[Rfam]
Nucleotides: 110
Stems, first nucleotide, its partner, number of pairs: 001108002004105006011098020032067015
Number, partner (000 for none) and nucleotide at each position: 001108a002107c003000c004105a005104g006103c007102a008101u009100a010000u011098g012097u013096u014095g015094u016093g017092u018091u019090u020089u021088g022087g023086u024085c025084a026083c027082c028081a029080g030079c031000a032067u033066g034065a035064u036063c037062c038061a039060c040059c041058a042057g043056c044055a045054u046053g047000c048000u049000g050000g051000u052000c053046c054045a055044u056043g057042c058041u059040g060039g061038u062037g063036g064035a065034u066033c067032a068000u069000g070000c071000u072000g073000g074000u075000c076000c077000a078000u079030g080029c081028u082027g083026g084025u085024g086023a087022c088021c089020a090019a091018a092017a093016c094015a095014c096013a097012a098011u099000a100009u101008a102007u103006g104005c105004u106000g107002g108001u109000c110000c
Rfam assigns this 110-nucleotide RNA sequence from Notothenia coriiceps to the family "MIR474 microRNA precursor family". A search with the family's covariance model found it, with a score of 53 bits. The literature on the family includes a 2005 paper in Plant Cell by Lu et al., "Novel and mechanical stress-responsive MicroRNAs in Populus trichocarpa that are absent from Arabidopsis".